[Rfam]
RNA sequence: GGGUAAAUGCCAAAAUCUUUGCAUUGUCUGUUGAGAGGUGAUGAUUUAAAGACAUGCUCAAUAGAAUUUUGCUGAGGACU
Numbered sequence: 001g002g003g004u005a006a007a008u009g010c011c012a013a014a015a016u017c018u019u020u021g022c023a024u025u026g027u028c029u030g031u032u033g034a035g036a037g038g039u040g041a042u043g044a045u046u047u048a049a050a051g052a053c054a055u056g057c058u059c060a061a062u063a064g065a066a067u068u069u070u071g072c073u074g075a076g077g078a079c080u
Stems, first nucleotide, its partner, number of pairs: 001080002004077001006073001008071002
Small nucleolar RNA SNORD115: an 80-nucleotide sequence from Carlito syrichta. Rfam classes the family as a C/D-box small nucleolar RNA. On this family, see Cavaille et al., Proc Natl Acad Sci U S A 2000: "Identification of brain-specific and imprinted small nucleolar RNA genes exhibiting an unusual genomic organization". The source organism's lineage runs through Eukaryota, Metazoa, Dipnotetrapodomorpha, Tarsiidae and Carlito.